[Rfam]
RNA: Alphaproteobacteria transfer-messenger RNA
RNA sequence: UCACUUCACAUUAAGCCUCGAAUCGCUAUAUGGGAUCUGCCGGUUUCGACCGGAUAUGGCGAUAAAUGGCGCUGUGUAAUAGGUACAACGGACCCGGGGGCAGUACCCGGCGGCUCCACCAUAACCCGCUGUUAAAGGGCGGUUUUUGACGGGGCCGAACUAGGAUCGACGUGUGCUGAAAGACAGUGUUUUCGCCCGGGCUGAGUACCCCGUAAAACUGUUCAAAACACACAAGUGCCAAUGACAAUGAAGCACUCGCUCUUGCUGCGUAAUCUGACGGCCUAACGGCCUGAUCUUACAAAGCUAAAGCGCGGUCGGACCCACCGGGCAACAGAAGCGGAUUCC
Numbered sequence: 001u002c003a004c005u006u007c008a009c010a011u012u013a014a015g016c017c018u019c020g021a022a023u024c025g026c027u028a029u030a031u032g033g034g035a036u037c038u039g040c041c042g043g044u045u046u047c048g049a050c051c052g053g054a055u056a057u058g059g060c061g062a063u064a065a066a067u068g069g070c071g072c073u074g075u076g077u078a079a080u081a082g083g084u085a086c087a088a089c090g091g092a093c094c095c096g097g098g099g100g101c102a103g104u105a106c107c108c109g110g111c112g113g114c115u116c117c118a119c120c121a122u123a124a125c126c127c128g129c130u131g132u133u134a135a136a137g138g139g140c141g142g143u144u145u146u147u148g149a150c151g152g153g154g155c156c157g158a159a160c161u162a163g164g165a166u167c168g169a170c171g172u173g174u175g176c177u178g179a180a181a182g183a184c185a186g187u188g189u190u191u192u193c194g195c196c197c198g199g200g201c202u203g204a205g206u207a208c209c210c211c212g213u214a215a216a217a218c219u220g221u222u223c224a225a226a227a228c229a230c231a232c233a234a235g236u237g238c239c240a241a242u243g244a245c246a247a248u249g250a251a252g253c254a255c256u257c258g259c260u261c262u263u264g265c266u267g268c269g270u271a272a273u274c275u276g277a278c279g280g281c282c283u284a285a286c287g288g289c290c291u292g293a294u295c296u297u298a299c300a301a302a303g304c305u306a307a308a309g310c311g312c313g314g315u316c317g318g319a320c321c322c323a324c325c326g327g328g329c330a331a332c333a334g335a336a337g338c339g340g341a342u343u344c345c
Stems, first nucleotide, its partner, number of pairs: 040053004058196005069189007084175003088172003094110005111157007197212004202224003312326004317343002320340002